[Rfam]
RNA sequence: UGCCAGUGAUGACAAACUUCAUAUUUUCUGACACCUCGUAUGAGAGCUGAAACAGCUCCUGAUUCCACUGCUUUUCUGAGGCUC
Numbered sequence: 001u002g003c004c005a006g007u008g009a010u011g012a013c014a015a016a017c018u019u020c021a022u023a024u025u026u027u028c029u030g031a032c033a034c035c036u037c038g039u040a041u042g043a044g045a046g047c048u049g050a051a052a053c054a055g056c057u058c059c060u061g062a063u064u065c066c067a068c069u070g071c072u073u074u075u076c077u078g079a080g081g082c083u084c
Stems, first nucleotide, its partner, number of pairs: 002082003046056004
About this RNA:
This 84-nucleotide sequence from Sphaeramia orbicularis belongs to the Rfam family "Small nucleolar RNA SNORD60". The match comes from Rfam's covariance-model search (61 bits). A reference for the family is Galardi et al. (2002), "Purified box C/D snoRNPs are able to reproduce site-specific 2'-O-methylation of target RNA in vitro", Mol Cell Biol. Its Rfam clan is "SNORD60 clan". Lineage of the source: Eukaryota > Eumetazoa > Actinopterygii > Actinopteri > Sphaeramia. The family's consensus secondary structure was predicted with PFOLD.